[Rfam]
RNA: RNase MRP
Organism: Merluccius polli
Nucleotides: 258
Base pairs, nucleotide, nucleotide: 002258003257004256005255006254007253008252010250011249014211015210016209017208018207019206022063023062024061025060026059027058028057037051038050039049040048041047068243069242071241072240073239074238083095084094085093086092096119097118098117099116100115101114121184122183129180130179132176137172138171139170140168141167142166143165150161151160152159153158215228218225
Number, partner (000 for none) and nucleotide at each position: 001000g002258g003257g004256c005255a006254u007253u008252c009000g010250g011249a012000a013000g014211g015210c016209u017208u018207g019206c020000u021000a022063u023062c024061u025060g026059g027058g028057c029000u030000a031000c032000u033000a034000g035000c036000u037051g038050g039049g040048g041047a042000c043000u044000a045000g046000u047041u048040c049039c050038u051037c052000c053000a054000c055000c056000c057028g058027c059026c060025c061024a062023g063022g064000g065000g066000a067000a068243a069242g070000u071241c072240c073239c074238c075000g076000g077000a078000c079000u080000c081000u082000g083095g084094g085093c086092a087000g088000a089000a090000a091000g092086u093085g094084u095083c096119c097118c098117g099116g100115c101114g102000g103000c104000g105000a106000c107000g108000c109000c110000c111000c112000c113000a114101u115100g116099c117098c118097g119096g120000c121184c122183u123000c124000g125000c126000g127000c128000u129180c130179c131000g132176c133000c134000g135000c136000c137172u138171c139170g140168u141167u142166g143165c144000u145000a146000a147000g148000a149000c150161g151160u152159c153158c154000g155000u156000u157000a158153g159152g160151a161150c162000c163000g164000a165143g166142c167141g168140g169000g170139c171138g172137a173000c174000u175000c176132g177000c178000g179130g180129g181000c182000c183122g184121g185000c186000c187000u188000u189000g190000u191000c192000c193000a194000u195000g196000c197000g198000a199000g200000a201000g202000a203000a204000a205000u206019g207018c208017a209016a210015g211014c212000g213000g214000g215228c216000g217000a218225c219000a220000c221000g222000u223000c224000u225218g226000c227000a228215g229000c230000a231000a232000c233000u234000c235000a236000a237000c238074g239073g240072g241071g242069c243068u244000c245000a246000u247000u248000c249011u250010c251000g252008g253007a254006a255005u256004g257003c258002u